[Rfam]
Shown here is a 377-nucleotide RNA sequence from Thalassobacillus cyri, a member of the family "Bacterial RNase P class B". Rfam's curators write: Ribonuclease P (RNase P) is a ubiquitous endoribonuclease, found in archaea, bacteria and eukarya as well as chloroplasts and mitochondria. Its best characterised activity is the generation of mature 5'-ends of tRNAs by cleaving the 5'-leader elements of precursor-tRNAs. Cellular RNase Ps are ribonucleoproteins. RNA from bacterial RNase Ps retains its catalytic activity in the absence of the protein subunit, i.e. it is a ribozyme. Isolated eukaryotic and archaeal RNase P RNA has not been shown to retain its catalytic function, but is still essential for the catalytic activity of the holoenzyme. Although the archaeal and eukaryotic holoenzyme s have a much greater protein content than the bacterial ones, the RNA cores from all the three lineages are homologous -- helices corresponding to P1, P2, P3, P4, and P10/11 are common to all cellular RNase P RNAs. Yet, there is considerable sequence variation, particularly among the eukaryotic RNAs. It is annotated as a ribozyme. It scores 330 bits against the family's covariance model. The family is grouped with related families in Rfam's "RNaseP clan".

RNA sequence: AUACUUGGGUGAUCGCUGCAUGUUUAAUGCAGAGGAAAGUCCAUGCUCGCACAGGCUGAGAUGCCUGUAGUGUUCAUGCCUGACGAAACCAUAAGUCAGGGUAGCCUGAUGGCUAACGGCAGGGAAAAUGCCUAAGUCCUUUUGGAUAUGGCAUUCCAACCUUGAAAGUGCCACAGUGACGUAGUCAAAGUAGAAAUGCUUUGAGUGGAACGAGGUAAACCCCAUGAGCGAGCAACCCAAAUGAAGGUAGGGGCACUCUUCGAAGGGAAAUGAACCUGACAAGAGGCAAGCGUAAUGCUUGCAGAUAGAUGAUUACCACCGGAGUACGAGGUUGACCACCGCUGGCAGUACGAUGGUACAGAACAUGGCUUACAAAG
Numbered sequence: 001a002u003a004c005u006u007g008g009g010u011g012a013u014c015g016c017u018g019c020a021u022g023u024u025u026a027a028u029g030c031a032g033a034g035g036a037a038a039g040u041c042c043a044u045g046c047u048c049g050c051a052c053a054g055g056c057u058g059a060g061a062u063g064c065c066u067g068u069a070g071u072g073u074u075c076a077u078g079c080c081u082g083a084c085g086a087a088a089c090c091a092u093a094a095g096u097c098a099g100g101g102u103a104g105c106c107u108g109a110u111g112g113c114u115a116a117c118g119g120c121a122g123g124g125a126a127a128a129u130g131c132c133u134a135a136g137u138c139c140u141u142u143u144g145g146a147u148a149u150g151g152c153a154u155u156c157c158a159a160c161c162u163u164g165a166a167a168g169u170g171c172c173a174c175a176g177u178g179a180c181g182u183a184g185u186c187a188a189a190g191u192a193g194a195a196a197u198g199c200u201u202u203g204a205g206u207g208g209a210a211c212g213a214g215g216u217a218a219a220c221c222c223c224a225u226g227a228g229c230g231a232g233c234a235a236c237c238c239a240a241a242u243g244a245a246g247g248u249a250g251g252g253g254c255a256c257u258c259u260u261c262g263a264a265g266g267g268a269a270a271u272g273a274a275c276c277u278g279a280c281a282a283g284a285g286g287c288a289a290g291c292g293u294a295a296u297g298c299u300u301g302c303a304g305a306u307a308g309a310u311g312a313u314u315a316c317c318a319c320c321g322g323a324g325u326a327c328g329a330g331g332u333u334g335a336c337c338a339c340c341g342c343u344g345g346c347a348g349u350a351c352g353a354u355g356g357u358a359c360a361g362a363a364c365a366u367g368g369c370u371u372a373c374a375a376a377g
Stems, first nucleotide, its partner, number of pairs: 004377003007373001008317007016032006037371003041368005046232005051068006074227005079100006101117001102115005118222002121162003129153004136147003168220002170216003185204008236252003256285005262280001286302006319356003324351004